[Rfam]
RNA sequence: AUGACUAUUGUGGGAGAGUGCAUUAUGAUAGGCCACCGAAGGGGCAAGUUCCGAAAAGACCCUUGGAACAAAUCUCUCAGGUAGAAGAACCACAAUUAGGAC
Numbered sequence: 001a002u003g004a005c006u007a008u009u010g011u012g013g014g015a016g017a018g019u020g021c022a023u024u025a026u027g028a029u030a031g032g033c034c035a036c037c038g039a040a041g042g043g044g045c046a047a048g049u050u051c052c053g054a055a056a057a058g059a060c061c062c063u064u065g066g067a068a069c070a071a072a073u074c075u076c077u078c079a080g081g082u083a084g085a086a087g088a089a090c091c092a093c094a095a096u097u098a099g100g101a102c
Stems, first nucleotide, its partner, number of pairs: 007096007020033002023030001035082003038078002042076003048069007
The record is a 102-nucleotide RNA sequence from Cytobacillus solani, which matches "Glycine riboswitch aptamer" in Rfam. Lineage of the source: Bacteria > Bacillati > Bacillota > Caryophanales > Cytobacillus. The match comes from Rfam's covariance-model search (60 bits).